The record is a 165-nucleotide RNA sequence from Lysinibacillus sp. BF-4, which matches "FMN riboswitch aptamer (RFN element)" in Rfam. It scores 120 bits against the family's covariance model. Gene Ontology term of the family: FMN binding. Pairs were carried over by alignment from the consensus structure, which is taken from published work. Rfam's curators write: The RFN element is a highly conserved domain that is found frequently in the 5'-untranslated regions of prokaryotic mRNAs that encode for flavin mononucleotide (FMN) biosynthesis and transport proteins. The organism belongs to Lysinibacillus, within Bacteria.

RNA sequence: AUUCAUCUUCGGGGCAGGGUGCAAUUCCCGACCGGCGGUAAUUAUGCGGUAGCUGUUCGACAGCAACCUAUAAGCAUACGAGCCCGCGACCUACUCAUUUUUGUGAGUAGCUGACUUGGUGCAACUCCAAGGCCGACAGUAUAGUCUGGAUGGGAGAAGGUGAAG
Numbered sequence: 001a002u003u004c005a006u007c008u009u010c011g012g013g014g015c016a017g018g019g020u021g022c023a024a025u026u027c028c029c030g031a032c033c034g035g036c037g038g039u040a041a042u043u044a045u046g047c048g049g050u051a052g053c054u055g056u057u058c059g060a061c062a063g064c065a066a067c068c069u070a071u072a073a074g075c076a077u078a079c080g081a082g083c084c085c086g087c088g089a090c091c092u093a094c095u096c097a098u099u100u101u102u103g104u105g106a107g108u109a110g111c112u113g114a115c116u117u118g119g120u121g122c123a124a125c126u127c128c129a130a131g132g133c134c135g136a137c138a139g140u141a142u143a144g145u146c147u148g149g150a151u152g153g154g155a156g157a158a159g160g161u162g163a164a165g
Stems, first nucleotide, its partner, number of pairs: 003163008017029003031145002033135002035087004091110002115131005137148003
Dot-bracket structure: ..((((((((......(((.......))).[[((((((.............................................))))...((................))....(((((.......)))))..)).(((....]]))).......))))))))..